[Rfam]
Shown here is a 580-nucleotide part of an RNA from Thermogymnomonas acidicola, a member of the family "Archaeal large subunit ribosomal RNA". The base pairs follow the family's consensus structure, which is taken from published work. The match comes from Rfam's covariance-model search (2826 bits).

RNA sequence: CUCCCACGUGAAAGCGAAGUCCCCGUGGAGCUUUACUGCAGCCUGUAGCUGUGAUACGGUUCCCGAUGCGUAGCGUAGGAAGGAGCCGUCGAAGCCUGGGUUUUGGCCCAGGUGGAGGCGCCAAUGAAACACUUCCCUUCGGGAAUUGCGUCACUAACCUCUAAAAGAGGGACAACUAUUGGUGGGCAGUUUGGGUGGGGCGCCACGCCCCUGAGAAUCAAACAGGGGCCCCCAAAGGUCGGCUCAGGAGGGUCAGAAAUCCUCCGUAGAGUGUAAGAGCAAAAGCCGGCUUGACUGUGUUCCGGGCAAUAAGGAACGCAGAUGCGAAAGCAGGGUCUAGCGAACCACCCUGUUCCUCCUUAGUGGGGGCGGGUGAUAAGAGAGAAGUUACCCCAGGGAUAACUGAGUCGUCCUCGGCAAGAGUUCACAUCGACCCGAGGGUUUGCUACUUCGAUGUCGUCUGUUCCUAUCCUGGUGCUGAACAAGGUGCCAAGGGUGGGGCUGUUCGCCCAUUAAAAGGGAUCCUGAGAUGGGUUCACUACGUCGCGAGACAGUAGGGUUGCUUCUCCGUGGGAGUGCU
Numbered sequence: 001c002u003c004c005c006a007c008g009u010g011a012a013a014g015c016g017a018a019g020u021c022c023c024c025g026u027g028g029a030g031c032u033u034u035a036c037u038g039c040a041g042c043c044u045g046u047a048g049c050u051g052u053g054a055u056a057c058g059g060u061u062c063c064c065g066a067u068g069c070g071u072a073g074c075g076u077a078g079g080a081a082g083g084a085g086c087c088g089u090c091g092a093a094g095c096c097u098g099g100g101u102u103u104u105g106g107c108c109c110a111g112g113u114g115g116a117g118g119c120g121c122c123a124a125u126g127a128a129a130c131a132c133u134u135c136c137c138u139u140c141g142g143g144a145a146u147u148g149c150g151u152c153a154c155u156a157a158c159c160u161c162u163a164a165a166a167g168a169g170g171g172a173c174a175a176c177u178a179u180u181g182g183u184g185g186g187c188a189g190u191u192u193g194g195g196u197g198g199g200g201c202g203c204c205a206c207g208c209c210c211c212u213g214a215g216a217a218u219c220a221a222a223c224a225g226g227g228g229c230c231c232c233c234a235a236a237g238g239u240c241g242g243c244u245c246a247g248g249a250g251g252g253u254c255a256g257a258a259a260u261c262c263u264c265c266g267u268a269g270a271g272u273g274u275a276a277g278a279g280c281a282a283a284a285g286c287c288g289g290c291u292u293g294a295c296u297g298u299g300u301u302c303c304g305g306g307c308a309a310u311a312a313g314g315a316a317c318g319c320a321g322a323u324g325c326g327a328a329a330g331c332a333g334g335g336u337c338u339a340g341c342g343a344a345c346c347a348c349c350c351u352g353u354u355c356c357u358c359c360u361u362a363g364u365g366g367g368g369g370c371g372g373g374u375g376a377u378a379a380g381a382g383a384g385a386a387g388u389u390a391c392c393c394c395a396g397g398g399a400u401a402a403c404u405g406a407g408u409c410g411u412c413c414u415c416g417g418c419a420a421g422a423g424u425u426c427a428c429a430u431c432g433a434c435c436c437g438a439g440g441g442u443u444u445g446c447u448a449c450u451u452c453g454a455u456g457u458c459g460u461c462u463g464u465u466c467c468u469a470u471c472c473u474g475g476u477g478c479u480g481a482a483c484a485a486g487g488u489g490c491c492a493a494g495g496g497u498g499g500g501g502c503u504g505u506u507c508g509c510c511c512a513u514u515a516a517a518a519g520g521g522a523u524c525c526u527g528a529g530a531u532g533g534g535u536u537c538a539c540u541a542c543g544u545c546g547c548g549a550g551a552c553a554g555u556a557g558g559g560u561u562g563c564u565u566c567u568c569c570g571u572g573g574g575a576g577u578g579c580u
Stems, first nucleotide, its partner, number of pairs: 001576008010568002014563002022397002025394001027393002029389005035190004042182002045179004051154005057148010068137001078136005085119003097110005158170004193206001194204003207229006232335002238290006244270002247265006271280002295321009323332001325330001346375005352370001355369004406447003410444001411441007421431002458533001459531004463525001464522005471496002475490005499511004539557004543552003